[Rfam]
RNA sequence: GUGGCAGCUUGGCGGCCGUAUUUGUGGUGCCAUUUACUUUAAUGUUUAGGAGUGACAUCACAUAUACGGUGGCUAAACUGCCCC
Numbered sequence: 001g002u003g004g005c006a007g008c009u010u011g012g013c014g015g016c017c018g019u020a021u022u023u024g025u026g027g028u029g030c031c032a033u034u035u036a037c038u039u040u041a042a043u044g045u046u047u048a049g050g051a052g053u054g055a056c057a058u059c060a061c062a063u064a065u066a067c068g069g070u071g072g073c074u075a076a077a078c079u080g081c082c083c084c
Stems, first nucleotide, its partner, number of pairs: 003082005015070007024061004029056001031054003037050002
RNA: mir-489 microRNA precursor family